[Rfam]
RNA sequence: AAGAGUGCUGUGAUGAAGCAAAUUGUUUGUGGAUUAGAGUUUCUGAUCCGGGCUUCUUCUCCCGGAACUUGAUUACUAACCCUUGGCUGUCUGAGCACCCUU
Numbered sequence: 001a002a003g004a005g006u007g008c009u010g011u012g013a014u015g016a017a018g019c020a021a022a023u024u025g026u027u028u029g030u031g032g033a034u035u036a037g038a039g040u041u042u043c044u045g046a047u048c049c050g051g052g053c054u055u056c057u058u059c060u061c062c063c064g065g066a067a068c069u070u071g072a073u074u075a076c077u078a079a080c081c082c083u084u085g086g087c088u089g090u091c092u093g094a095g096c097a098c099c100c101u102u
Stems, first nucleotide, its partner, number of pairs: 001102003005098004042072002047067001048065005
RNA: Small nucleolar RNA Z157/R69/R10
Organism: Populus deltoides